[Rfam]
RNA sequence: AACUGGGUUAGGAUCCUCUGCAGUACUGUACGGUGCUGUACAGUCACUAUCAUGUGGGACCGGGCCCCAUAUGUCAUCGACACUACAGCACCAUACGAUACUGCAGAGGAUCUCAACCCGGA
Numbered sequence: 001a002a003c004u005g006g007g008u009u010a011g012g013a014u015c016c017u018c019u020g021c022a023g024u025a026c027u028g029u030a031c032g033g034u035g036c037u038g039u040a041c042a043g044u045c046a047c048u049a050u051c052a053u054g055u056g057g058g059a060c061c062g063g064g065c066c067c068c069a070u071a072u073g074u075c076a077u078c079g080a081c082a083c084u085a086c087a088g089c090a091c092c093a094u095a096c097g098a099u100a101c102u103g104c105a106g107a108g109g110a111u112c113u114c115a116a117c118c119c120g121g122a
Stems, first nucleotide, its partner, number of pairs: 003121007011113015027097004032092009051073008060064001
MIR5084 microRNA precursor family: a 122-nucleotide sequence from Triticum aestivum. Rfam 15.1 lists 152 matches to the family in 5 species.